[Rfam]
RNA sequence: CACGUCAGCGCGCUUUACUGACGUGGCAACAAAUCGCCCCCUUGCGAUUUGUUGCCACGUCAGCAAAACGCGCUGACGUGG
Numbered sequence: 001c002a003c004g005u006c007a008g009c010g011c012g013c014u015u016u017a018c019u020g021a022c023g024u025g026g027c028a029a030c031a032a033a034u035c036g037c038c039c040c041c042u043u044g045c046g047a048u049u050u051g052u053u054g055c056c057a058c059g060u061c062a063g064c065a066a067a068a069c070g071c072g073c074u075g076a077c078g079u080g081g
Stems, first nucleotide, its partner, number of pairs: 001080012014067003018063004023058015

Rfam assigns this 81-nucleotide RNA sequence from Gossypium hirsutum to the family "MIR7486 microRNA precursor family". The base pairs follow the family's consensus structure, which was predicted with RNAalifold. Lineage of the source: Eukaryota > Embryophyta > Euphyllophyta > Mesangiospermae > Gossypium.